[Rfam]
RNA sequence: AUGACAAUAAGGGGAGAGACUGUUUUUUACGGCGCCGAAGGAGCAAACAGAUUAUGUGAAUCUCUCAGGCAAAAAGACUCUUAUUUGGAC
Dot-bracket structure: .....((((((((......((((.....)))).(((((..(((...((.......))....))))).))).......)))))))).....